[Rfam]
RNA: Glutamine riboswitch aptamer (glnA leader)
RNA sequence: CACGUUCAUCCUAUUAUAGGACGGAAGUAGCAAUAGCGAAGGAACGCACU
Numbered sequence: 001c002a003c004g005u006u007c008a009u010c011c012u013a014u015u016a017u018a019g020g021a022c023g024g025a026a027g028u029a030g031c032a033a034u035a036g037c038g039a040a041g042g043a044a045c046g047c048a049c050u
Base pairs, nucleotide, nucleotide: 003046004045005044006043007042009021010020011019012018024047030037031036